Notes
Shown here is a 124-nucleotide sequence from Balneola sp. EhC07, a member of the family "SAM riboswitch aptamer (S box leader)". About the family: The SAM riboswitch is found upstream of a number of genes which code for proteins involved in methionine or cysteine biosynthesis in Gram-positive bacteria.
RNA sequence: UUCUCAUCGAGAAAGGUGGAGGGAUCAGGUCCUGCGAAGCCUUGGCAACCGUCCUGUACAAAUUUGUACAGGAAAAGGUGCUACAUCCUGCUUAGUGCAAAUAAUGUACUGAGAAAGAUGAGUG
Numbered sequence: 001u002u003c004u005c006a007u008c009g010a011g012a013a014a015g016g017u018g019g020a021g022g023g024a025u026c027a028g029g030u031c032c033u034g035c036g037a038a039g040c041c042u043u044g045g046c047a048a049c050c051g052u053c054c055u056g057u058a059c060a061a062a063u064u065u066g067u068a069c070a071g072g073a074a075a076a077g078g079u080g081c082u083a084c085a086u087c088c089u090g091c092u093u094a095g096u097g098c099a100a101a102u103a104a105u106g107u108a109c110u111g112a113g114a115a116a117g118a119u120g121a122g123u124g
Base pairs, nucleotide, nucleotide: 001124003122004121005120006119007118008117013043014042015041016040017039021032022031023030026090027089028088029087044082045081046080047079049078050077052073053072054071055070056069057068058067086116091113092112093111094110095109096108097107098106099105